[Rfam]
RNA sequence: UGGGGGAGGCCGGAUUCUGGGCUGUGUCCCCGGCGCCCUGUGCUCCCGGCCUGCGUUGUUGGACUCAUGCUAUGGCUGCGCAGCUCCCU
Numbered sequence: 001u002g003g004g005g006g007a008g009g010c011c012g013g014a015u016u017c018u019g020g021g022c023u024g025u026g027u028c029c030c031c032g033g034c035g036c037c038c039u040g041u042g043c044u045c046c047c048g049g050c051c052u053g054c055g056u057u058g059u060u061g062g063a064c065u066c067a068u069g070c071u072a073u074g075g076c077u078g079c080g081c082a083g084c085u086c087c088c089u
Base pairs, nucleotide, nucleotide: 002088003087004086005085006084009081010080011078012077013076016075017074021071023069024068025067026066027063028062030061031058032057033056034055035054036053040051042050043049044048

Rfam assigns this 89-nucleotide RNA sequence from Vulpes vulpes to the family "mir-8799 microRNA precursor family". Lineage of the source: Eukaryota > Teleostomi > Eutheria > Laurasiatheria > Vulpes. It scores 65 bits against the family's covariance model. Its Rfam clan is "mir-8791 microRNA precursor clan".